The family of this 151-nucleotide sequence from Drosophila willistoni is "Small nucleolar RNA psi28S-3378". Rfam's curators put it in the seed alignment.
RNA sequence: AGCACCAAAAUCAGUAACCAAGCGAAUGCUAAACUAGCUUGGGGACUACGCUUGGGUGCUCAAAUUGAUUUAACCGCUCGCUAUAAUGCCAAACAUAACAUUAAGAGCAUAACCUAAUCCUCGCUAUGCUUGUGGCCCUGUUUCGAGACAC
Number, nucleotide and partner (000 for none) at each position: 001a060002g059003c058004a057005c056006c055007a000008a000009a000010a000011u000012c000013a047014g046015u045016a000017a000018c042019c041020a040021a039022g038023c037024g000025a000026a000027u000028g000029c000030u000031a000032a000033a000034c000035u000036a000037g023038c022039u021040u020041g019042g018043g000044g000045a015046c014047u013048a000049c000050g000051c000052u000053u000054g000055g006056g005057u004058g003059c002060u001061c000062a000063a000064a000065u000066u000067g000068a000069u000070u147071u000072a000073a000074c000075c000076g000077c000078u146079c145080g144081c000082u000083a141084u140085a139086a000087u000088g136089c135090c134091a133092a000093a000094c000095a000096u000097a000098a000099c000100a000101u000102u000103a000104a000105g131106a130107g129108c128109a127110u126111a000112a000113c123114c000115u000116a000117a000118u000119c000120c000121u000122c000123g113124c000125u000126a110127u109128g108129c107130u106131u105132g000133u091134g090135g089136c088137c000138c000139u085140g084141u083142u000143u000144c080145g079146a078147g070148a000149c000150a000151c000
About the family: psi28S-3378 is a member of the H/ACA class of snoRNA. The base pairs follow the family's consensus structure, which was predicted with CMfinder.